Shown here is a 104-nucleotide sequence from Cloacibacillus evryensis, a member of the family "Glycine riboswitch aptamer".
RNA sequence: AUGAAAGCGGCAAGAGAGACCCGUCCACGUUAUAACAUCAUGGGCGCCGAAGGGGCAAAACCGCGAAGGUUGAAACUCUCAGGCAUAAGGAUUGCCGCCGGACA
Numbered sequence: 001a002u003g004a005a006a007g008c009g010g011c012a013a014g015a016g017a018g019a020c021c022c023g024u025c026c027a028c029g030u031u032a033u034a035a036c037a038u039c040a041u042g043g044g045c046g047c048c049g050a051a052g053g054g055g056c057a058a059a060a061c062c063g064c065g066a067a068g069g070u071u072g073a074a075a076c077u078c079u080c081a082g083g084c085a086u087a088a089g090g091a092u093u094g095c096c097g098c099c100g101g102a103c104a
Stems, first nucleotide, its partner, number of pairs: 007098007020044004046084003049080002053078003059071004